[Rfam]
RNA: c-di-GMP-I riboswitch aptamer
RNA sequence: AAUCAAAUAUGGCAAAGCAAGCGAAAGCUUGUGACGCAAAACUAUAGGGCCUUUAAACUGGUAGCCAGCUGCAAUU
Numbered sequence: 001a002a003u004c005a006a007a008u009a010u011g012g013c014a015a016a017g018c019a020a021g022c023g024a025a026a027g028c029u030u031g032u033g034a035c036g037c038a039a040a041a042c043u044a045u046a047g048g049g050c051c052u053u054u055a056a057a058c059u060g061g062u063a064g065c066c067a068g069c070u071g072c073a074a075u076u
Stems, first nucleotide, its partner, number of pairs: 012037002017032006040070001042068002047066002049062003